[Rfam]
RNA sequence: GGCAAGUAUUUUACGAUUAAGAAGCACCCGCCUCUUAUACAAAUUAUAUAUUAAUCC
Numbered sequence: 001g002g003c004a005a006g007u008a009u010u011u012u013a014c015g016a017u018u019a020a021g022a023a024g025c026a027c028c029c030g031c032c033u034c035u036u037a038u039a040c041a042a043a044u045u046a047u048a049u050a051u052u053a054a055u056c057c
Stems, first nucleotide, its partner, number of pairs: 018037005024031002
A member of the RNA family "Plastid-rps18 3UTR RNA" from Parnassia trinervis, 57 nucleotides long. The organism belongs to Parnassia, within Eukaryota. About the family: Plastid rps18 is a non-coding RNA (ncRNA) present in plastids. It was identified as a short stem-loop motif in the 3 prime untranslate region (3UTR) of rps18 gene. It is one of the family's seed sequences. A reference for the family is Richter et al. (2023), "Retrograde signaling in plants: A critical review focusing on the GUN pathway and beyond", Plant Commun.